Notes:
dauA ncRNA motif: an 85-nucleotide sequence from Streptomyces sp. NRRL F-5122. NCBI's taxonomy places the organism under Bacteria, Bacillati, Actinomycetota, Actinomycetes, Streptomyces. It scores 74 bits against the family's covariance model.
[Rfam]
RNA sequence: ACUCCCCUGCCCGGGGCGCGCCCACGGGGCCGGAACCCCGGCCCCGUGGGCGCUGCCGGAUGGUCUUCCGAACCGAGGCGUCAUG
Numbered sequence: 001a002c003u004c005c006c007c008u009g010c011c012c013g014g015g016g017c018g019c020g021c022c023c024a025c026g027g028g029g030c031c032g033g034a035a036c037c038c039c040g041g042c043c044c045c046g047u048g049g050g051c052g053c054u055g056c057c058g059g060a061u062g063g064u065c066u067u068c069c070g071a072a073c074c075g076a077g078g079c080g081u082c083a084u085g
Stems, first nucleotide, its partner, number of pairs: 001081002004078002010059002013056001015054005021048001025046009061075003
It is annotated as a cis-regulatory element.
From the family's description: dauA ncRNA motif was reported as a strong cis regulatory motif candidate, with potential to be a cis regulatory riboswitch type, it have been identified in genomes of the genus Streptomyces.